RNA sequence: GGCUGGUCUGAAAGUAGUGAGUUACCUCAGUUGAUGGUUCAGCCAGUUACAGAUCGACCUCCUUGUCCUCCUCGUUCUCCCCUUCCCACUGCUAUACUUGACUAAUCUUAA
Numbered sequence: 001g002g003c004u005g006g007u008c009u010g011a012a013a014g015u016a017g018u019g020a021g022u023u024a025c026c027u028c029a030g031u032u033g034a035u036g037g038u039u040c041a042g043c044c045a046g047u048u049a050c051a052g053a054u055c056g057a058c059c060u061c062c063u064u065g066u067c068c069u070c071c072u073c074g075u076u077c078u079c080c081c082c083u084u085c086c087c088a089c090u091g092c093u094a095u096a097c098u099u100g101a102c103u104a105a106u107c108u109u110a111a
Stems, first nucleotide, its partner, number of pairs: 001107002004104005010099002014095002016090004021085001042072001045069002
RNA: Y RNA